RNA sequence: CAACCCCCCGCGUGGCGGCAUCUUGCCGAACUCCCCCAGGGCCGGAAGGCAGCAAGGGUAGGCGAGCUCUGUCGGGUACGCGGGGGGCCUUGU
Numbered sequence: 001c002a003a004c005c006c007c008c009c010g011c012g013u014g015g016c017g018g019c020a021u022c023u024u025g026c027c028g029a030a031c032u033c034c035c036c037c038a039g040g041g042c043c044g045g046a047a048g049g050c051a052g053c054a055a056g057g058g059u060a061g062g063c064g065a066g067c068u069c070u071g072u073c074g075g076g077u078a079c080g081c082g083g084g085g086g087g088c089c090u091u092g093u
Stems, first nucleotide, its partner, number of pairs: 002091002006087001007084006013076001016074005022066006033058003041050003
The record is a 93-nucleotide sequence from Nocardioides sp. Root1257, which matches "Bacterial small signal recognition particle RNA" in Rfam. The family's consensus secondary structure is taken from published work. It is annotated as a non-coding RNA gene. For this family Rfam cites "SRPDB: Signal Recognition Particle Database" (Rosenblad et al., Nucleic Acids Res, 2003).